RNA sequence: GCGUUCCUCGCUGGAGAGAGGCCCGUUUCGAGCGGGCCCACCGAAGGGGCAAGCGGACGCGCCUGUUGCGGCGCCGCCAAUCUCUCAGGUAAAGCGGACAGAGAGGGCAGC
Number, nucleotide and partner (000 for none) at each position: 001g000002c000003g000004u000005u000006c106007c105008u104009c103010g000011c101012u100013g099014g000015a000016g000017a000018g000019a000020g038021g037022c036023c035024c000025g000026u000027u000028u000029c000030g000031a000032g000033c000034g000035g023036g022037c021038c020039c000040a090041c089042c088043g086044a085045a000046g000047g084048g083049g082050c000051a000052a000053g077054c076055g075056g074057a000058c000059g000060c000061g000062c000063c000064u000065g000066u000067u000068g000069c000070g000071g000072c000073g000074c056075c055076g054077c053078c000079a000080a000081u000082c049083u048084c047085u044086c043087a000088g042089g041090u040091a000092a000093a000094g000095c000096g000097g000098a000099c013100a012101g011102a000103g009104a008105g007106g006107g000108c000109a000110g000111c000

Glycine riboswitch aptamer: a 111-nucleotide RNA from Rhizobacter sp. AJA081-3.
Rfam links the family to the GO term glycine biosynthetic process.
NCBI's taxonomy places the organism under Bacteria, Pseudomonadota, Burkholderiales, Sphaerotilaceae, Rhizobacter.
A search with the family's covariance model found it, with a score of 61 bits.